The record is a 66-nucleotide RNA from Bacillus sp. HNG, which matches "Listeria sRNA sbrA" in Rfam.
It is annotated as a small RNA.

[Rfam]
RNA sequence: AUACAUCUAGAUCAUACCCCUAAACUCCCUAGAUGGAAGGAGAGCGAAUGCACUCCUUCUUUUUUU
Number, nucleotide and partner (000 for none) at each position: 001a000002u000003a000004c035005a034006u033007c032008u031009a030010g000011a000012u000013c000014a000015u000016a000017c000018c000019c000020c000021u000022a000023a000024a000025c000026u000027c000028c000029c000030u009031a008032g007033a006034u005035g004036g059037a058038a057039g056040g055041a054042g053043a000044g051045c050046g000047a000048a000049u000050g045051c044052a000053c042054u041055c040056c039057u038058u037059c036060u000061u000062u000063u000064u000065u000066u000